Rfam assigns this 87-nucleotide sequence from Gossypium laxum to the family "MIR7486 microRNA precursor family".
It scores 76 bits against the family's covariance model.
Rfam 15.1 lists 10,132 matches to the family in 36 species.
RNA sequence: CACGUCAGCGCGAUUUGAUGACAUGGCAACCAAUCGCGCCCUCUAGGACGCGAUUUUUUGCCAUGUCAGUAAAUUGCGCUGACUUGG
Numbered sequence: 001c002a003c004g005u006c007a008g009c010g011c012g013a014u015u016u017g018a019u020g021a022c023a024u025g026g027c028a029a030c031c032a033a034u035c036g037c038g039c040c041c042u043c044u045a046g047g048a049c050g051c052g053a054u055u056u057u058u059u060g061c062c063a064u065g066u067c068a069g070u071a072a073a074u075u076g077c078g079c080u081g082a083c084u085u086g087g
Stems, first nucleotide, its partner, number of pairs: 001086002004083014019068003023064007032055007040047002
The organism belongs to Gossypium, within Eukaryota.